[Rfam]
RNA sequence: AAUUCUGCCAAUGGUUGGCCGAUCGCUAUACAGGUAAUUUGUGCCUUGGUUACCUGUCAGCGUCUAUUUGCUAU
Number, nucleotide and partner (000 for none) at each position: 001a000002a000003u000004u022005c021006u000007g019008c018009c017010a016011a015012u000013g000014g000015u011016u010017g009018g008019c007020c000021g005022a004023u000024c062025g061026c060027u059028a000029u000030a057031c056032a055033g054034g053035u052036a051037a050038u049039u048040u000041g000042u000043g000044c000045c000046u000047u000048g039049g038050u037051u036052a035053c034054c033055u032056g031057u030058c000059a027060g026061c025062g024063u000064c000065u000066a000067u000068u000069u000070g000071c000072u000073a000074u000
RNA: Chlorobi-RRM RNA